[Rfam]
The family of this 312-nucleotide RNA from Methanofollis formosanus is "Archaeal signal recognition particle RNA". It scores 185 bits against the family's covariance model. By type it is a non-coding RNA gene. Gene Ontology terms of the family: SRP-dependent cotranslational protein targeting to membrane, signal sequence recognition and signal recognition particle, plasma membrane targeting.
RNA sequence: AUGGGGACUAGCCCGGGUGGUUAGGCGUCACCUGUCAUCCGAAAACGCCGAUACGCGGAGGGCGAAGUCCGAGGAAGGCCUUGGCGAUCUGCAGGCGCCCUGUGCUUCCCGACUGAGAAGCCUUGUCCCAUGAGGUCGACGGCCAGGGAUCGAUGCUCCGGAGGGAGCGGAGACCUGUUGUCGCGGAAACCGGUCCAGGCCCGGAAGGGAGCAGACUUACCGUGAACGUACGGCGCCCAUGGGGGUGCGGGGUGGAGAAGGGAGGCCCCGGCAAGUGCAGGCACGCAUUGUCGACCAAGGACCCGUCCCCAA
Number, nucleotide and partner (000 for none) at each position: 001a000002u311003g310004g309005g308006g307007a306008c305009u000010a000011g063012c062013c061014c060015g033016g032017g031018u030019g029020g028021u027022u000023a000024g000025g000026c000027g021028u020029c019030a018031c017032c016033u015034g000035u000036c000037a000038u059039c058040c057041g056042a000043a000044a000045a000046c000047g000048c000049c000050g000051a000052u000053a000054c000055g000056c041057g040058g039059a038060g014061g013062g012063c011064g000065a000066a000067g302068u301069c300070c299071g000072a000073g296074g295075a000076a000077g292078g291079c290080c000081u000082u000083g000084g000085c000086g000087a000088u285089c000090u283091g282092c281093a000094g000095g278096c277097g276098c275099c000100c270101u000102g268103u000104g266105c265106u264107u263108c262109c261110c260111g000112a000113c257114u256115g000116a000117g000118a000119a000120g253121c252122c251123u250124u249125g248126u247127c243128c242129c241130a240131u239132g238133a000134g236135g234136u233137c232138g231139a229140c228141g227142g178143c177144c000145a000146g000147g176148g175149a000150u173151c172152g000153a000154u169155g168156c167157u166158c165159c164160g000161g000162a000163g000164g159165g158166a157167g156168c155169g154170g000171a000172g151173a150174c000175c148176u147177g143178u142179u000180g000181u225182c224183g223184c222185g221186g220187a000188a000189a000190c000191c000192g217193g216194u215195c214196c000197a000198g000199g000200c209201c208202c207203g000204g000205a000206a000207g202208g201209g200210a000211g000212c000213a000214g195215a194216c193217u192218u000219a000220c186221c185222g184223u183224g182225a181226a000227c141228g140229u139230a000231c138232g137233g136234c135235g000236c134237c000238c132239a131240u130241g129242g128243g127244g000245g000246u000247g126248c125249g124250g123251g122252g121253u120254g000255g000256a114257g113258a000259a000260g110261g109262g108263a107264g106265g105266c104267c000268c102269c000270g100271g000272c000273a000274a000275g098276u097277g096278c095279a000280g000281g092282c091283a090284c000285g088286c000287a000288u000289u000290g079291u078292c077293g000294a000295c074296c073297a000298a000299g070300g069301a068302c067303c000304c000305g008306u007307c006308c005309c004310c003311a002312a000